[Rfam]
RNA sequence: AAUCCGUCACAACGGCUUCCUGGCGUGACGGCUAAACCCAAUGGAGCA
Numbered sequence: 001a002a003u004c005c006g007u008c009a010c011a012a013c014g015g016c017u018u019c020c021u022g023g024c025g026u027g028a029c030g031g032c033u034a035a036a037c038c039c040a041a042u043g044g045a046g047c048a
Base pairs, nucleotide, nucleotide: 004031005030006029007028008027009026010025013022014021015047016046017045019044020043
This 48-nucleotide sequence from Roseovarius halotolerans belongs to the Rfam family "SAM/SAH riboswitch aptamer".
The base pairs follow the family's consensus structure, which is taken from published work.
A search with the family's covariance model found it, with a score of 63 bits.
Taxonomically the source falls in Roseovarius (Bacteria, Pseudomonadota, Rhodobacterales, Roseobacteraceae).
Its family is annotated with S-adenosylmethionine metabolic process and regulation of gene expression in the Gene Ontology.